[Rfam]
RNA sequence: UUGCAAAUCGACCUGAAGCUGGUUGUGAGUAUGUGAAUAUACAUAAGCAGUACUUAUACCUCCCGGUAUAGACAGGUGAUU
Numbered sequence: 001u002u003g004c005a006a007a008u009c010g011a012c013c014u015g016a017a018g019c020u021g022g023u024u025g026u027g028a029g030u031a032u033g034u035g036a037a038u039a040u041a042c043a044u045a046a047g048c049a050g051u052a053c054u055u056a057u058a059c060c061u062c063c064c065g066g067u068a069u070a071g072a073c074a075g076g077u078g079a080u081u
Stems, first nucleotide, its partner, number of pairs: 018051003023046005029040004054071007
Rfam assigns this 81-nucleotide RNA sequence from Bacteroides sp. CAG:754 to the family "Bacteroides-1 RNA". NCBI's taxonomy places the organism under Bacteria, Pseudomonadati, Bacteroidia, Bacteroidales, Bacteroides. Rfam classes the family as a small RNA. The match comes from Rfam's covariance-model search (74 bits).